This 172-nucleotide sequence from Rhizobiales bacterium GAS113 belongs to the Rfam family "Alphaproteobacterial sRNA ar45". The literature on the family includes a 2012 paper in RNA Biol by del Val et al., "A survey of sRNA families in alpha-proteobacteria". Rfam classes the family as a small RNA.
RNA sequence: GCCUAAUUCGCACGUGCCUGUGGCUGCGUGCCGGUCGGUGGGCAUCCGGACAAGAGGCCGGACAGCCGCCGGGGUCGAAGACCCCACACCCAGACCGGCGGUCGGAGGCGACCGGCUUACACUCGUUCUCCACGAGUGGACGCGGCUUGAAGCAACGACGGAGCGGGCUUUU
Numbered sequence: 001g002c003c004u005a006a007u008u009c010g011c012a013c014g015u016g017c018c019u020g021u022g023g024c025u026g027c028g029u030g031c032c033g034g035u036c037g038g039u040g041g042g043c044a045u046c047c048g049g050a051c052a053a054g055a056g057g058c059c060g061g062a063c064a065g066c067c068g069c070c071g072g073g074g075u076c077g078a079a080g081a082c083c084c085c086a087c088a089c090c091c092a093g094a095c096c097g098g099c100g101g102u103c104g105g106a107g108g109c110g111a112c113c114g115g116c117u118u119a120c121a122c123u124c125g126u127u128c129u130c131c132a133c134g135a136g137u138g139g140a141c142g143c144g145g146c147u148u149g150a151a152g153c154a155a156c157g158a159c160g161g162a163g164c165g166g167g168c169u170u171u172u
Stems, first nucleotide, its partner, number of pairs: 001168004008158003015154003022147008031049004036042001057116005117139004123135004